[Rfam]
RNA sequence: UAUGCAAGUGAUGAUAAAACAGACAGGGACAUCAGAACUUCAGUAUGAUGAUUUGUCGUUGGGAAUCUCUCUGAUGCAUA
Numbered sequence: 001u002a003u004g005c006a007a008g009u010g011a012u013g014a015u016a017a018a019a020c021a022g023a024c025a026g027g028g029a030c031a032u033c034a035g036a037a038c039u040u041c042a043g044u045a046u047g048a049u050g051a052u053u054u055g056u057c058g059u060u061g062g063g064a065a066u067c068u069c070u071c072u073g074a075u076g077c078a079u080a
Stems, first nucleotide, its partner, number of pairs: 002079005